[Rfam]
RNA sequence: GUUGAGGGGAAUGUUGUCUGGUUCGAGACCAUUCUUCUGAAGCAAUUAAAUUAACCUAUCAAUGAAUGAUUUCGGACCAGGCUUCAUUCCUCUCAAC
Numbered sequence: 001g002u003u004g005a006g007g008g009g010a011a012u013g014u015u016g017u018c019u020g021g022u023u024c025g026a027g028a029c030c031a032u033u034c035u036u037c038u039g040a041a042g043c044a045a046u047u048a049a050a051u052u053a054a055c056c057u058a059u060c061a062a063u064g065a066a067u068g069a070u071u072u073c074g075g076a077c078c079a080g081g082c083u084u085c086a087u088u089c090c091u092c093u094c095a096a097c
Stems, first nucleotide, its partner, number of pairs: 001097013016082006024074003

Background: The family of this 97-nucleotide RNA from Cicer arietinum is "mir-166 microRNA precursor family".